[Rfam]
RNA sequence: GCGUUCCUCGCUGGAGAGAGGCCCGCCCCGAGCGGGCCCACCGAAGGGGCAAGCGGCGCAUCCGCAAGGGCGUGUCGCCAAUCUCUCAGGUAAAGCGGACAGCCAGGGCAAG
Numbered sequence: 001g002c003g004u005u006c007c008u009c010g011c012u013g014g015a016g017a018g019a020g021g022c023c024c025g026c027c028c029c030g031a032g033c034g035g036g037c038c039c040a041c042c043g044a045a046g047g048g049g050c051a052a053g054c055g056g057c058g059c060a061u062c063c064g065c066a067a068g069g070g071c072g073u074g075u076c077g078c079c080a081a082u083c084u085c086u087c088a089g090g091u092a093a094a095g096c097g098g099a100c101a102g103c104c105a106g107g108g109c110a111a112g
Stems, first nucleotide, its partner, number of pairs: 006107003010103004020038006040091003043087002047085003053078007
Shown here is a 112-nucleotide RNA sequence from Rhizobacter sp. Root404, a member of the family "Glycine riboswitch aptamer". Rfam's curators write: This family represents the bacterial glycine riboswitch. Glycine riboswitches usually consist of two metabolite-binding aptamers domains with similar structures in tandem. A search with the family's covariance model found it, with a score of 60 bits.